[Rfam]
RNA sequence: UCUUCAGGGAUGAAUUUAUACAGUGACUUUCGUUCUUCUGAGUCAACUGAAGCCAGCCUUUCUGUUCUGAGAAGA
Numbered sequence: 001u002c003u004u005c006a007g008g009g010a011u012g013a014a015u016u017u018a019u020a021c022a023g024u025g026a027c028u029u030u031c032g033u034u035c036u037u038c039u040g041a042g043u044c045a046a047c048u049g050a051a052g053c054c055a056g057c058c059u060u061u062c063u064g065u066u067c068u069g070a071g072a073a074g075a
Stems, first nucleotide, its partner, number of pairs: 001075003005071001
This 75-nucleotide RNA sequence from Oryzias javanicus belongs to the Rfam family "Small nucleolar RNA SNORD59". Clan: SNORD59 clan. A search with the family's covariance model found it, with a score of 70 bits. The base pairs follow the family's consensus structure, which was predicted with ILM.